[Rfam]
RNA sequence: UGCCUUGUGGUUCCUUAAGACAGCUCAUCGGUGCUGAUGCUUGAGGUUGUGUUUGACGGGCACACAUUGAUCUCUGCAAUUUAAUGCGUGGUGGCUGACAUUUCCAUGCAGCUUCCACAGCCCGGUUGCAGAAACAUGU
Numbered sequence: 001u002g003c004c005u006u007g008u009g010g011u012u013c014c015u016u017a018a019g020a021c022a023g024c025u026c027a028u029c030g031g032u033g034c035u036g037a038u039g040c041u042u043g044a045g046g047u048u049g050u051g052u053u054u055g056a057c058g059g060g061c062a063c064a065c066a067u068u069g070a071u072c073u074c075u076g077c078a079a080u081u082u083a084a085u086g087c088g089u090g091g092u093g094g095c096u097g098a099c100a101u102u103u104c105c106a107u108g109c110a111g112c113u114u115c116c117a118c119a120g121c122c123c124g125g126u127u128g129c130a131g132a133a134a135c136a137u138g139u
Base pairs, nucleotide, nucleotide: 001062002061003060004059008051009050013046014045015044016043017042018041020038021036022035023034024033074131076129077128078127079126080125081124086121087120088118089117090116091115093113094112095111096110097109